RNA: Small nucleolar RNA SNORA70
RNA sequence: UUGCAGCCAGUUAAACCAACUGUGCUCUUUCCCCAUUGGGGCCCAGUGUGCAAUGGCUAUAAACAGCAGCCUCCUCAAUAGUGUAUGCAGCCGUUGCCUGUACAAGUUUCCCUAAGGGACCUUGGAGACAACC
Numbered sequence: 001u002u003g004c005a006g007c008c009a010g011u012u013a014a015a016c017c018a019a020c021u022g023u024g025c026u027c028u029u030u031c032c033c034c035a036u037u038g039g040g041g042c043c044c045a046g047u048g049u050g051c052a053a054u055g056g057c058u059a060u061a062a063a064c065a066g067c068a069g070c071c072u073c074c075u076c077a078a079u080a081g082u083g084u085a086u087g088c089a090g091c092c093g094u095u096g097c098c099u100g101u102a103c104a105a106g107u108u109u110c111c112c113u114a115a116g117g118g119a120c121c122u123u124g125g126a127g128a129c130a131a132c133c
Base pairs, nucleotide, nucleotide: 002052003051004050005049019047020046021045022044025041026040027039028038079119089108090107091106